[Rfam]
RNA sequence: UGCACCCUGUCCGAUGGUGAGGUCAUCCAAGGUAAGUCUGCCCAAAGGGCAGCGCCUCACCGCCCGCAAGGGUAGGGACAGGGGGGAGGU
Numbered sequence: 001u002g003c004a005c006c007c008u009g010u011c012c013g014a015u016g017g018u019g020a021g022g023u024c025a026u027c028c029a030a031g032g033u034a035a036g037u038c039u040g041c042c043c044a045a046a047g048g049g050c051a052g053c054g055c056c057u058c059a060c061c062g063c064c065c066g067c068a069a070g071g072g073u074a075g076g077g078a079c080a081g082g083g084g085g086g087a088g089g090u
Base pairs, nucleotide, nucleotide: 005083006082007081008080009079010078011077012076016061017060018059019058020057021056022055023054036053038052039051040050041049042048062073063072064071065070